[Rfam]
Rfam assigns this 475-nucleotide RNA sequence from Inhella crocodyli to the family "Bacterial RNase P class A". It is annotated as a ribozyme. NCBI's taxonomy places the organism under Bacteria, Pseudomonadati, Burkholderiales, Sphaerotilaceae, Inhella. The family's consensus secondary structure is taken from published work.

RNA sequence: GAAGACGCCCAGACCGCCGCUGGGGCAAGGCCCGAAAGGGUGCCCUGGAGGAAGGUCCGGACUGCAUAGAGCAGCGUAGGGGGUAACACCCCUCCACCGCGAGGUGCGGAUCAGAGCAACAGAGACGAGUUCGGCCGGGGAGAGAAGGCGCGGUGCAAGCUGCCACUUCUCGAAUCCUCGAGUGUUCUGUCGGCCCCGGCGCAAGCCGGGCGCGCCUUGCGCGAGCAGGGCUUCGGGCGCAAGCCCGAAUCCGACAGCACAUCGGAUGGGGCGAGCGCGCAAGCGCUCGGCGCGGCCGAGGUGAAACGGGCAAUCUCUACGCGCAGCAACACCAAGUAGGCCUGUAUUGAGGCGGCUCGCUGAGCAGGCGGGUAGGUGGCAUCGAGCCGGGGUGCGAGCCCCGGCCCAGAGGAAUGGCGGUCACGCCGGGCGAAAGCCCGGUGCACAGAAUCCGGCCCAUCGGGCGUCUUCACGA
Numbered sequence: 001g002a003a004g005a006c007g008c009c010c011a012g013a014c015c016g017c018c019g020c021u022g023g024g025g026c027a028a029g030g031c032c033c034g035a036a037a038g039g040g041u042g043c044c045c046u047g048g049a050g051g052a053a054g055g056u057c058c059g060g061a062c063u064g065c066a067u068a069g070a071g072c073a074g075c076g077u078a079g080g081g082g083g084u085a086a087c088a089c090c091c092c093u094c095c096a097c098c099g100c101g102a103g104g105u106g107c108g109g110a111u112c113a114g115a116g117c118a119a120c121a122g123a124g125a126c127g128a129g130u131u132c133g134g135c136c137g138g139g140g141a142g143a144g145a146a147g148g149c150g151c152g153g154u155g156c157a158a159g160c161u162g163c164c165a166c167u168u169c170u171c172g173a174a175u176c177c178u179c180g181a182g183u184g185u186u187c188u189g190u191c192g193g194c195c196c197c198g199g200c201g202c203a204a205g206c207c208g209g210g211c212g213c214g215c216c217u218u219g220c221g222c223g224a225g226c227a228g229g230g231c232u233u234c235g236g237g238c239g240c241a242a243g244c245c246c247g248a249a250u251c252c253g254a255c256a257g258c259a260c261a262u263c264g265g266a267u268g269g270g271g272c273g274a275g276c277g278c279g280c281a282a283g284c285g286c287u288c289g290g291c292g293c294g295g296c297c298g299a300g301g302u303g304a305a306a307c308g309g310g311c312a313a314u315c316u317c318u319a320c321g322c323g324c325a326g327c328a329a330c331a332c333c334a335a336g337u338a339g340g341c342c343u344g345u346a347u348u349g350a351g352g353c354g355g356c357u358c359g360c361u362g363a364g365c366a367g368g369c370g371g372g373u374a375g376g377u378g379g380c381a382u383c384g385a386g387c388c389g390g391g392g393u394g395c396g397a398g399c400c401c402c403g404g405c406c407c408a409g410a411g412g413a414a415u416g417g418c419g420g421u422c423a424c425g426c427c428g429g430g431c432g433a434a435a436g437c438c439c440g441g442u443g444c445a446c447a448g449a450a451u452c453c454g455g456c457c458c459a460u461c462g463g464g465c466g467u468c469u470u471c472a473c474g475a
Stems, first nucleotide, its partner, number of pairs: 001471010011460001012422007020048008054457002057455005062326004069358004074322005079093005094108001095106004109317002114315002116311002131139002147216006330378004340369006351361003386405008